[Rfam]
RNA: mir-216 microRNA precursor family
RNA sequence: CUCUGGUGAAAUCUCAGCUGGCAACUGUGAGUGGUUCAAUCUCUGCUCUCACAAUGGCCGCUGGGAUUAUGCUAAAC
Numbered sequence: 001c002u003c004u005g006g007u008g009a010a011a012u013c014u015c016a017g018c019u020g021g022c023a024a025c026u027g028u029g030a031g032u033g034g035u036u037c038a039a040u041c042u043c044u045g046c047u048c049u050c051a052c053a054a055u056g057g058c059c060g061c062u063g064g065g066a067u068u069a070u071g072c073u074a075a076a077c
Stems, first nucleotide, its partner, number of pairs: 004074004010068008020059003023055001026053006